This 110-nucleotide RNA sequence from Dorea sp. CAG:105 belongs to the Rfam family "Glycine riboswitch aptamer". Taxonomically the source falls in Dorea (Bacteria, Bacillati, Clostridia, Lachnospirales).
RNA sequence: GGACGACACUCUGGAGAACAAUAUUUUUAAUUGUACCGAAGAAGUAAACUGGUAGUUAUAUGGGGAAAAACGAUCAGCAAUCUUUCAGGUAAAAGGACAGAGGCAGACAA
Dot-bracket structure: ........(((((.....((((.......)))).(((((..(((....(((((...................)))))....))))).))).......)))))........
Numbered sequence: 001g002g003a004c005g006a007c008a009c010u011c012u013g014g015a016g017a018a019c020a021a022u023a024u025u026u027u028u029a030a031u032u033g034u035a036c037c038g039a040a041g042a043a044g045u046a047a048a049c050u051g052g053u054a055g056u057u058a059u060a061u062g063g064g065g066a067a068a069a070a071c072g073a074u075c076a077g078c079a080a081u082c083u084u085u086c087a088g089g090u091a092a093a094a095g096g097a098c099a100g101a102g103g104c105a106g107a108c109a110a
Stems, first nucleotide, its partner, number of pairs: 009102005019033004035090003038086002042084003049077005

Its family is annotated with glycine biosynthetic process in the Gene Ontology. It scores 48 bits against the family's covariance model.